[Rfam]
RNA sequence: CAGCUUGAAGUGAUGAUUCACAUUCAUGUCUCUUCUCUGAUAAAUAUCUUGAAGAAAAUUCUAUGUAUCUGAUCAGGCUU
Numbered sequence: 001c002a003g004c005u006u007g008a009a010g011u012g013a014u015g016a017u018u019c020a021c022a023u024u025c026a027u028g029u030c031u032c033u034u035c036u037c038u039g040a041u042a043a044a045u046a047u048c049u050u051g052a053a054g055a056a057a058a059u060u061c062u063a064u065g066u067a068u069c070u071g072a073u074c075a076g077g078c079u080u
Base pairs, nucleotide, nucleotide: 002079003078004077005076
RNA: Small nucleolar RNA SNORD111
Organism: Physeter macrocephalus